This 109-nucleotide sequence from Aquimarina algiphila belongs to the Rfam family "SAM riboswitch aptamer (S box leader)". The match comes from Rfam's covariance-model search (85 bits). NCBI's taxonomy places the organism under Bacteria, Bacteroidota, Flavobacteriia, Flavobacteriales, Aquimarina. The family's consensus secondary structure is taken from published work.
RNA sequence: AAGUUAUUAAGAAAGGUGGAGGGAAUAGACCCUGUGAAACCUUAGCAACCCUUUAAAUUUAUUUAAAGAAGGUGCUAAAUUCUAUUCGCUUAGGCGAAAAAGAUAACUC
Numbered sequence: 001a002a003g004u005u006a007u008u009a010a011g012a013a014a015g016g017u018g019g020a021g022g023g024a025a026u027a028g029a030c031c032c033u034g035u036g037a038a039a040c041c042u043u044a045g046c047a048a049c050c051c052u053u054u055a056a057a058u059u060u061a062u063u064u065a066a067a068g069a070a071g072g073u074g075c076u077a078a079a080u081u082c083u084a085u086u087c088g089c090u091u092a093g094g095c096g097a098a099a100a101a102g103a104u105a106a107c108u109c
Base pairs, nucleotide, nucleotide: 002108003107004106005105006104007103008102013043014042015041016040017039021032022031023030026084027083028082029081044076045075046074047073049072050071051068052067053066054065080101085098086097087096088095089094